The record is a 108-nucleotide sequence from Rhodothermus marinus, which matches "Bacteroidales small SRP" in Rfam.
RNA sequence: CUCGGAAGGGCAAGUCCCGUACGGCCAGCUCCCUCUGAACCCCGCCAGGGCCGGAAGGCAGCAACGGUAGGAGGUUGUAGCGGCGCGAUACGGGGUGCUUGCCCUUCC
Numbered sequence: 001c002u003c004g005g006a007a008g009g010g011c012a013a014g015u016c017c018c019g020u021a022c023g024g025c026c027a028g029c030u031c032c033c034u035c036u037g038a039a040c041c042c043c044g045c046c047a048g049g050g051c052c053g054g055a056a057g058g059c060a061g062c063a064a065c066g067g068u069a070g071g072a073g074g075u076u077g078u079a080g081c082g083g084c085g086c087g088a089u090a091c092g093g094g095g096u097g098c099u100u101g102c103c104c105u106u107c108c
Base pairs, nucleotide, nucleotide: 008104009103010102011101012100013099014098015097017093018092019091020090021089022087023086024084025083

Notes
Pairs were carried over by alignment from the consensus structure, which is taken from published work. Its Rfam clan is "SRP clan". A search with the family's covariance model found it, with a score of 104 bits. Lineage of the source: Bacteria > Rhodothermia > Rhodothermaceae > Rhodothermus > Rhodothermus marinus. Gene Ontology terms of the family: SRP-dependent cotranslational protein targeting to membrane, signal sequence recognition and signal recognition particle, plasma membrane targeting.